Notes:
Rfam assigns this 153-nucleotide sequence from Candidatus Paraburkholderia kirkii to the family "Group II catalytic intron D1-D4-7". Pairs were carried over by alignment from the consensus structure. The literature on the family includes a 2001 paper in Trends Genet by Bonen and Vogel, "The ins and outs of group II introns". Rfam 15.1 lists 1,296 matches to the family in 705 species. Gene Ontology term of the family: Group II intron splicing. About the family: Group II introns are found in rRNA, tRNA and mRNA of organelles in fungi, plants and protists, and also in mRNA in bacteria. The source organism's lineage runs through Bacteria, Pseudomonadati, Betaproteobacteria, Burkholderiales and Candidatus Paraburkholderia kirkii.
Nucleotides: 153
Stems, first nucleotide, its partner, number of pairs: 002019006028069003032065001033060005039054006082096005097124004107114002128146005
Number, partner (000 for none) and nucleotide at each position: 001000c002019c003018u004017g005016c006015u007014g008000u009000a010000c011000g012000a013000c014007c015006a016005g017004c018003a019002g020000u021000a022000g023000c024000c025000u026000a027000c028069g029068a030067g031000a032065a033060c034059a035058u036057g037056c038000g039054u040053u041052a042051c043050u044049g045000g046000c047000a048000a049044c050043g051042g052041u053040g054039g055000g056037g057036u058035g059034u060033g061000a062000a063000g064000c065032u066000c067030c068029u069028c070000g071000g072000a073000c074000a075000a076000u077000g078000u079000a080000g081000c082096c083095c084094c085093g086092g087000a088000c089000g090000u091000a092086u093085c094084g095083g096082g097124c098123g099122a100121a101000c102000u103000a104000u105000u106000c107114c108113c109000g110000u111000g112000a113108g114107g115000g116000g117000a118000c119000u120000g121100u122099u123098c124097g125000g126000a127000g128146a129145c130144u131143c132142c133000c134000a135000g136000c137000a138000g139000c140000a141000a142132g143131g144130g145129g146128u147000u148000g149000a150000g151000g152000a153000g